[Rfam]
RNA sequence: GUCAAUGACCCCACCCAAACUGCCUUGCAAUUUGGAUGGGGCUUGAAAUAAGAAGCUUUCAUGCGUCUGUUUCAAGCCUGAUUGACUAGCCUGAGUCUUAAUUGACUCCGUGAUUUGAGAAUCAACCUUAAACAAGUUGAAAUAGGCACUCUGGAACAUACAGCCUAAUUCCGGACUCUGCGGACCUGUAUGAAACAGUACUGAGGUCAGGUGCAGUGUGCGGUCAACAAACCUCUUAUCACAUUGGCGAAGGCUGGUGCUU
Numbered sequence: 001g002u003c004a005a006u007g008a009c010c011c012c013a014c015c016c017a018a019a020c021u022g023c024c025u026u027g028c029a030a031u032u033u034g035g036a037u038g039g040g041g042c043u044u045g046a047a048a049u050a051a052g053a054a055g056c057u058u059u060c061a062u063g064c065g066u067c068u069g070u071u072u073c074a075a076g077c078c079u080g081a082u083u084g085a086c087u088a089g090c091c092u093g094a095g096u097c098u099u100a101a102u103u104g105a106c107u108c109c110g111u112g113a114u115u116u117g118a119g120a121a122u123c124a125a126c127c128u129u130a131a132a133c134a135a136g137u138u139g140a141a142a143u144a145g146g147c148a149c150u151c152u153g154g155a156a157c158a159u160a161c162a163g164c165c166u167a168a169u170u171c172c173g174g175a176c177u178c179u180g181c182g183g184a185c186c187u188g189u190a191u192g193a194a195a196c197a198g199u200a201c202u203g204a205g206g207u208c209a210g211g212u213g214c215a216g217u218g219u220g221c222g223g224u225c226a227a228c229a230a231a232c233c234u235c236u237u238a239u240c241a242c243a244u245u246g247g248c249g250a251a252g253g254c255u256g257g258u259g260c261u262u
Base pairs, nucleotide, nucleotide: 001086002085003084004083005082006081008079010041011040012038013037015035016034017033018032019031042076043075044074045073046072047071048070049069050068089248090247091246093244094107095106096105097104110242111241112240113239114238117235118234119233146181147180150175151174152173153172154171155170156169158258159257165252166251183225184224185223186222188221189220190219191218195217196216198214199213200212201211202209203208
Dot-bracket structure: ((((((.(.((((.(((((...........))))).)).))(((((((((.................)))))))))..).))))))..(((.(((((......))))..(((((..(((..........................((..(((((((.[[.....[[..)))))))....)).((((.((((...((.((((((....)).)))).)))))))))).......)))..))))).).)))..]]....]]....
Source information: The family of this 262-nucleotide RNA from Erysipelotrichaceae bacterium RD49 is "HNH endonuclease-associated RNA and ORF (HEARO) RNA". It is annotated as a non-coding RNA gene. For this family Rfam cites "Exceptional structured noncoding RNAs revealed by bacterial metagenome analysis" (Weinberg et al., Nature, 2009).